[Rfam]
RNA sequence: GCGGUACCGGUUCACGCUGCCCGCAUGGUCUAUGCGUGCGAUGGACGAGCGACCCGGCGACC
Numbered sequence: 001g002c003g004g005u006a007c008c009g010g011u012u013c014a015c016g017c018u019g020c021c022c023g024c025a026u027g028g029u030c031u032a033u034g035c036g037u038g039c040g041a042u043g044g045a046c047g048a049g050c051g052a053c054c055c056g057g058c059g060a061c062c
Stems, first nucleotide, its partner, number of pairs: 003062003007057004015051004019046001021044002
Record summary:
A member of the RNA family "L31-Actinobacteria ribosomal protein leader" from Thermomonospora umbrina, 62 nucleotides long. A search with the family's covariance model found it, with a score of 45 bits. NCBI's taxonomy places the organism under Bacteria, Actinomycetes, Streptosporangiales, Thermomonosporaceae, Thermomonospora.